RNA: Actinobacteria sRNA Ms_IGR-7
RNA sequence: ACGAGAUGCCCUUCCGCGUCGGCCGAAUCUUUGCCCGAAGAGCUCAGAUUCUCCCGCCGCGAAAGGGCAUUCUCACUUCACGACGUGCUCGACAACCGCCCCUCAUCGGUGGAUCGAG
Numbered sequence: 001a002c003g004a005g006a007u008g009c010c011c012u013u014c015c016g017c018g019u020c021g022g023c024c025g026a027a028u029c030u031u032u033g034c035c036c037g038a039a040g041a042g043c044u045c046a047g048a049u050u051c052u053c054c055c056g057c058c059g060c061g062a063a064a065g066g067g068c069a070u071u072c073u074c075a076c077u078u079c080a081c082g083a084c085g086u087g088c089u090c091g092a093c094a095a096c097c098g099c100c101c102c103u104c105a106u107c108g109g110u111g112g113a114u115c116g117a118g
Stems, first nucleotide, its partner, number of pairs: 003072002006070008015061003020056003025051004030046001033043002101116001103112003